RNA sequence: GUGUCCUCUCGGGCCUAUUGGCUAAGAUCAAGUGUAGUAUCUGUUCUUUCUAGCGUGACAGCUAGAAGGCGCUCCACUAGAGUUGCCCUGUCUGUCAUUGAAUCUUUGGAACAAGACGGAGUCGCUUGGGGCUUGCUCCAAGUUCUGUCGCGGAUGUCGCUCGUGUUGCACUGAAGCGAGCGGACGUCCAUGGACC
Numbered sequence: 001g002u003g004u005c006c007u008c009u010c011g012g013g014c015c016u017a018u019u020g021g022c023u024a025a026g027a028u029c030a031a032g033u034g035u036a037g038u039a040u041c042u043g044u045u046c047u048u049u050c051u052a053g054c055g056u057g058a059c060a061g062c063u064a065g066a067a068g069g070c071g072c073u074c075c076a077c078u079a080g081a082g083u084u085g086c087c088c089u090g091u092c093u094g095u096c097a098u099u100g101a102a103u104c105u106u107u108g109g110a111a112c113a114a115g116a117c118g119g120a121g122u123c124g125c126u127u128g129g130g131g132c133u134u135g136c137u138c139c140a141a142g143u144u145c146u147g148u149c150g151c152g153g154a155u156g157u158c159g160c161u162c163g164u165g166u167u168g169c170a171c172u173g174a175a176g177c178g179a180g181c182g183g184a185c186g187u188c189c190a191u192g193g194a195c196c
Stems, first nucleotide, its partner, number of pairs: 007027003012023004048067006069086002071083004115149008128139004152189006159181006
A member of the RNA family "U2 spliceosomal RNA" from Gonapodya prolifera, 196 nucleotides long. Taxonomically the source falls in Gonapodya prolifera (Eukaryota, Monoblepharomycota, Monoblepharidomycetes, Monoblepharidales). The family is grouped with related families in Rfam's "U2 clan". Rfam classes the family as a spliceosomal small nuclear RNA.